[Rfam]
RNA sequence: GGUUCGAUGCCACGUCAACGGUAGCCAAAUGUGCAUUGACCGACCGAUGAUGCUAUGAUUGAACCGAUAAUAAACUGUUGUGUGUUUCGCAUGUUAUAGGAACCUGUGAACUGAUUCUUCCUUCAUUCACAGAGCCGUUUAUUGCGAUUACAUUU
Numbered sequence: 001g002g003u004u005c006g007a008u009g010c011c012a013c014g015u016c017a018a019c020g021g022u023a024g025c026c027a028a029a030u031g032u033g034c035a036u037u038g039a040c041c042g043a044c045c046g047a048u049g050a051u052g053c054u055a056u057g058a059u060u061g062a063a064c065c066g067a068u069a070a071u072a073a074a075c076u077g078u079u080g081u082g083u084g085u086u087u088c089g090c091a092u093g094u095u096a097u098a099g100g101a102a103c104c105u106g107u108g109a110a111c112u113g114a115u116u117c118u119u120c121c122u123u124c125a126u127u128c129a130c131a132g133a134g135c136c137g138u139u140u141a142u143u144g145c146g147a148u149u150a151c152a153u154u155u
Stems, first nucleotide, its partner, number of pairs: 002064007009056001013052005020041003024034002087147005099136002104132003108128003